[Rfam]
RNA sequence: AGCCGAUGAUUAAAAGUGUAUUUGCUACUCUUGAUGGUCUCGACCAGCUGAUUACACACCAUACUACUAAGAUCGAUGAGGCU
Numbered sequence: 001a002g003c004c005g006a007u008g009a010u011u012a013a014a015a016g017u018g019u020a021u022u023u024g025c026u027a028c029u030c031u032u033g034a035u036g037g038u039c040u041c042g043a044c045c046a047g048c049u050g051a052u053u054a055c056a057c058a059c060c061a062u063a064c065u066a067c068u069a070a071g072a073u074c075g076a077u078g079a080g081g082c083u
Stems, first nucleotide, its partner, number of pairs: 001083004